[Rfam]
RNA sequence: UUAGUCAAAGCCACACCCGCAGUGAUGCGGGGCCGGAAAGCCCAGGGUCUUGCCCAAGACAGCCAGGCUGCCUCAA
Numbered sequence: 001u002u003a004g005u006c007a008a009a010g011c012c013a014c015a016c017c018c019g020c021a022g023u024g025a026u027g028c029g030g031g032g033c034c035g036g037a038a039a040g041c042c043c044a045g046g047g048u049c050u051u052g053c054c055c056a057a058g059a060c061a062g063c064c065a066g067g068c069u070g071c072c073u074c075a076a
Stems, first nucleotide, its partner, number of pairs: 001076001003073002011036002016031006034062001039069004045064002047060003
Background
A member of the RNA family "c-di-GMP-I-GGC riboswitch aptamer" from Azotobacter chroococcum, 76 nucleotides long. Its Rfam clan is "c-di-GMP_I riboswitch clan". Rfam links the family to the GO term cyclic-di-GMP binding.